RNA sequence: UAAGACAAGUAGAAGCACCCGCUUCUCACCUGAUUGACGCCGUUAUGGUAGUUGACGGGUUCCGAACUCUUUUUUAUAAAGUUAUUGGAGACGUGUGGGUGCAUGAAGUGCCCACACUUUUUUCAUGCA
Numbered sequence: 001u002a003a004g005a006c007a008a009g010u011a012g013a014a015g016c017a018c019c020c021g022c023u024u025c026u027c028a029c030c031u032g033a034u035u036g037a038c039g040c041c042g043u044u045a046u047g048g049u050a051g052u053u054g055a056c057g058g059g060u061u062c063c064g065a066a067c068u069c070u071u072u073u074u075u076a077u078a079a080a081g082u083u084a085u086u087g088g089a090g091a092c093g094u095g096u097g098g099g100u101g102c103a104u105g106a107a108g109u110g111c112c113c114a115c116a117c118u119u120u121u122u123u124c125a126u127g128c129a
Base pairs, nucleotide, nucleotide: 011026012025013024014023015022016021028060029059030058036053037052038051039049040048094116095115096114097113098112099111100110101109102108

Rfam assigns this 129-nucleotide RNA from Oceanobacillus profundus to the family "Ribosomal protein L20 leader". Gene Ontology term of the family: regulation of gene expression. Rfam classes the family as a cis-regulatory leader. This family is a putative r-protein leader autoregulatory structure found in B. subtilis and other low-GC Gram-positive bacteria. It is located in the 5' untranslated regions of mRNAs encoding initiation factor 3 followed by ribosomal proteins L35 and L20 (infC-rpmI-rplT). A Rho-independent transcription terminator structure that is probably involved in regulation is included at the 3' end. Taxonomically the source falls in Oceanobacillus (Bacteria, Bacillota, Bacilli, Caryophanales).